MIR6462 microRNA precursor family: a 118-nucleotide sequence from Populus alba. Rfam 15.1 lists 40 matches to the family in 6 species. Its family is annotated with RISC complex and miRNA-mediated post-transcriptional gene silencing in the Gene Ontology.

[Rfam]
RNA sequence: GGAUCAGCAAGGGGCAAAGAUGCACAAGAGAGAUGUAAAAGGGUAGGGAAGGGGAAGAGAAAGAUCGAUAUCGACUACCCUUCUUUUUCUCUUAUGCAUUUUUGUCCCUCGCUAGUCU
Number, nucleotide and partner (000 for none) at each position: 001g000002g117003a116004u115005c000006a113007g112008c111009a000010a109011g108012g107013g106014g105015c104016a103017a102018a101019g100020a099021u098022g097023c096024a095025c000026a093027a092028g091029a090030g089031a088032g087033a086034u000035g000036u000037a000038a000039a000040a000041g000042g084043g083044u000045a000046g000047g000048g000049a000050a082051g081052g080053g079054g078055a000056a076057g075058a000059g072060a071061a000062a069063g000064a000065u000066c000067g000068a000069u062070a000071u060072c059073g000074a000075c057076u056077a000078c054079c053080c052081u051082u050083c043084u042085u000086u033087u032088u031089c030090u029091c028092u027093u026094a000095u024096g023097c022098a021099u020100u019101u018102u017103u016104g015105u014106c013107c012108c011109u010110c000111g008112c007113u006114a000115g004116u003117c002118u000